[Rfam]
RNA sequence: AAAAGGCGAUGAAGCGGAAGGUUGUUGACACACCCGGCCCCUUUGCCAUGGCGGGGUGUUGAGAAAUUUUCGCGGAGAAUGUCUAUUAAAAAAAUGGGCGA
Numbered sequence: 001a002a003a004a005g006g007c008g009a010u011g012a013a014g015c016g017g018a019a020g021g022u023u024g025u026u027g028a029c030a031c032a033c034c035c036g037g038c039c040c041c042u043u044u045g046c047c048a049u050g051g052c053g054g055g056g057u058g059u060u061g062a063g064a065a066a067u068u069u070u071c072g073c074g075g076a077g078a079a080u081g082u083c084u085a086u087u088a089a090a091a092a093a094a095u096g097g098g099c100g101a
Stems, first nucleotide, its partner, number of pairs: 014073003018070004025062007080100008
RNA: S10-Clostridia ribosomal protein leader